[Rfam]
The record is a 101-nucleotide sequence from Sphenodon punctatus, which matches "mir-454 microRNA precursor family" in Rfam.
Nucleotides: 101
Stems, first nucleotide, its partner, number of pairs: 020087010030074009041064005
Number, partner (000 for none) and nucleotide at each position: 001000c002000u003000u004000u005000c006000g007000u008000a009000a010000c011000c012000u013000u014000a015000a016000g017000g018000a019000c020087g021086a022085g023084a024083c025082c026081c027080u028079a029078u030074c031073a032072g033071u034070a035069u036068u037067g038066c039000c040000u041064c042063u043062g044061c045060u046000u047000u048000u049000g050000u051000g052000a053000u054000c055000a056000g057000g058000g059000u060045a061044g062043u063042a064041g065000u066038g067037c068036a069035a070034u071033a072032u073031u074030g075000c076000u077000u078029a079028u080027a081026g082025g083024g084023u085022c086021u087020c088000u089000u090000c091000u092000u093000u094000g095000g096000g097000g098000g099000u100000g101000u

The family has 20 seed sequences and 696 matches in Rfam 15.1. On this family, see Chen et al., Genes Dev 2005: "The developmental miRNA profiles of zebrafish as determined by small RNA cloning". Pairs were carried over by alignment from the consensus structure, which was predicted with RNAalifold.